[Rfam]
RNA: mir-399 microRNA precursor family
Organism: Ricinus communis
RNA sequence: CAAUGUAUUACUGGGCAAUUACUCUUUUGGCAGUUGGCCACUCGACUGCAAGUUAAAUUGCAAGGAAGUAAGCUCACUGCCAAAGGAGAUUUGCCCCGCAAUUCAUCU
Numbered sequence: 001c002a003a004u005g006u007a008u009u010a011c012u013g014g015g016c017a018a019u020u021a022c023u024c025u026u027u028u029g030g031c032a033g034u035u036g037g038c039c040a041c042u043c044g045a046c047u048g049c050a051a052g053u054u055a056a057a058u059u060g061c062a063a064g065g066a067a068g069u070a071a072g073c074u075c076a077c078u079g080c081c082a083a084a085g086g087a088g089a090u091u092u093g094c095c096c097c098g099c100a101a102u103u104c105a106u107c108u
Stems, first nucleotide, its partner, number of pairs: 005104001007102003011098001013096006022088004028082007036074001